[Rfam]
Nucleotides: 241
Base pairs, nucleotide, nucleotide: 002241003240004239005238006237007236008235009234010233011232014194015193016192017191018190019189026073027071028070029069030068031067032066043054044053045052077227078226079225081224082223083222084221095108096107097106098105099104111166112165113164130153131152132151139147140146141145196211197210198209199208200207201206
Number, partner (000 for none) and nucleotide at each position: 001000c002241a003240a004239g005238c006237a007236a008235g009234c010233c011232a012000a013000g014194g015193a016192c017191c018190a019189u020000a021000u022000g023000u024000u025000u026073u027071u028070u029069g030068u031067g032066u033000u034000a035000c036000a037000c038000u039000u040000u041000a042000c043054a044053g045052c046000a047000u048000c049000u050000a051000a052045g053044c054043u055000u056000a057000u058000u059000a060000u061000a062000u063000u064000c065000a066032a067031c068030a069029c070028a071027a072000g073026g074000a075000g076000a077227a078226a079225g080000u081224c082223c083222c084221c085000g086000g087000a088000a089000a090000a091000a092000a093000a094000a095108a096107u097106a098105g099104u100000a101000c102000u103000u104099a105098c106097u107096g108095u109000c110000c111166a112165a113164u114000g115000a116000u117000u118000a119000a120000a121000g122000a123000u124000u125000a126000g127000g128000g129000c130153a131152g132151u133000g134000g135000g136000g137000u138000a139147u140146u141145u142000a143000g144000u145141a146140a147139a148000g149000c150000a151132a152131c153130u154000u155000u156000g157000u158000u159000u160000g161000u162000u163000u164113g165112u166111u167000u168000u169000u170000u171000u172000u173000c174000a175000u176000a177000a178000u179000a180000a181000a182000a183000a184000g185000u186000a187000a188000u189019a190018u191017g192016g193015u194014c195000a196211c197210c198209c199208u200207a201206u202000a203000a204000u205000a206201a207200u208199g209198g210197g211196g212000c213000a214000a215000c216000u217000u218000a219000a220000u221084g222083g223082g224081g225079c226078u227077u228000a229000c230000u231000c232011u233010g234009g235008c236007u237006u238005g239004u240003u241002u